[Rfam]
RNA: NoRC associated RNA, pRNA
RNA sequence: CUCUAGGGCAGGGCUGGGGGACAAGUGUCCGGAUGGGGGUUCCGGGGAUACCCCCACGUCCUGUGGGUGGGCCCCGCUGCUGGGCA
Numbered sequence: 001c002u003c004u005a006g007g008g009c010a011g012g013g014c015u016g017g018g019g020g021a022c023a024a025g026u027g028u029c030c031g032g033a034u035g036g037g038g039g040u041u042c043c044g045g046g047g048a049u050a051c052c053c054c055c056a057c058g059u060c061c062u063g064u065g066g067g068u069g070g071g072c073c074c075c076g077c078u079g080c081u082g083g084g085c086a
Stems, first nucleotide, its partner, number of pairs: 004083001006081001008080002011078002018075003028066002030063002034056003